[Rfam]
RNA: Mammalian CPEB3 ribozyme
RNA sequence: GGGGGGGGGGGGGGGGGCAUUAAGGAGCGUUCACGUCAUGGUCCCUGUUAGGUGUUAUCACUUGCGAAUCCUUCA
Numbered sequence: 001g002g003g004g005g006g007g008g009g010g011g012g013g014g015g016g017g018c019a020u021u022a023a024g025g026a027g028c029g030u031u032c033a034c035g036u037c038a039u040g041g042u043c044c045c046u047g048u049u050a051g052g053u054g055u056u057a058u059c060a061c062u063u064g065c066g067a068a069u070c071c072u073u074c075a
Base pairs, nucleotide, nucleotide: 013045014044015043016042018040021075022073023072024071025070026069027039029037049064050063051062052061053060054059